[Rfam]
The family of this 142-nucleotide sequence from Polarella glacialis is "small nucleolar RNA snoR134". The match comes from Rfam's covariance-model search (41 bits). The literature on the family includes a 2009 paper in Nucleic Acids Res by Chen and Wu, "Mining small RNA sequencing data: a new approach to identify small nucleolar RNAs in Arabidopsis". It is annotated as an H/ACA-box small nucleolar RNA. The source organism's lineage runs through Eukaryota, Sar, Alveolata, Dinophyceae and Polarella.
RNA sequence: UAGCGAGUCGGACCCCCGGGCCCCAUCCCAUAUCUCAUUGGGAAUGCGGUCCCUAUUCCACUGGCCACAGGGGUUUUCCGUGCGCCGUGUUGCAGGGUGGCUUUCGUAUCGGCCUUCUGUGUCAAAAAUCGCCGGAACAUUA
Numbered sequence: 001u002a003g004c005g006a007g008u009c010g011g012a013c014c015c016c017c018g019g020g021c022c023c024c025a026u027c028c029c030a031u032a033u034c035u036c037a038u039u040g041g042g043a044a045u046g047c048g049g050u051c052c053c054u055a056u057u058c059c060a061c062u063g064g065c066c067a068c069a070g071g072g073g074u075u076u077u078c079c080g081u082g083c084g085c086c087g088u089g090u091u092g093c094a095g096g097g098u099g100g101c102u103u104u105c106g107u108a109u110c111g112g113c114c115u116u117c118u119g120u121g122u123c124a125a126a127a128a129u130c131g132c133c134g135g136a137a138c139a140u141u142a
Base pairs, nucleotide, nucleotide: 003065004064006062007061008060010059011058018053019052020051022049023048024046025045026043027042028041078135079134080133082132083131084130088124089123091121092120093119094118095117096116099114100113101112